The record is a 96-nucleotide RNA from Oceanobacillus piezotolerans, which matches "Guanidine-I riboswitch aptamer" in Rfam. Rfam links the family to the GO term regulation of gene expression.
RNA sequence: CUAAAUGUUUUCUAGGGUUCCGCAACAAUUAAGUUGGUCUGGUCCAAGGGAAAACUCACGUUAGACGUGCCACGGACGGAUAAAAGCCUAGGAGAU
Numbered sequence: 001c002u003a004a005a006u007g008u009u010u011u012c013u014a015g016g017g018u019u020c021c022g023c024a025a026c027a028a029u030u031a032a033g034u035u036g037g038u039c040u041g042g043u044c045c046a047a048g049g050g051a052a053a054a055c056u057c058a059c060g061u062u063a064g065a066c067g068u069g070c071c072a073c074g075g076a077c078g079g080a081u082a083a084a085a086g087c088c089u090a091g092g093a094g095a096u
Stems, first nucleotide, its partner, number of pairs: 007055006015045002020042002022039001023036004057069005071091001073094001078088002
On this family, see Trachman RJ 3rd and Ferre-D'Amare, RNA 2021: "An uncommon [K(+)(Mg(2+))2] metal ion triad imparts stability and selectivity to the Guanidine-I riboswitch".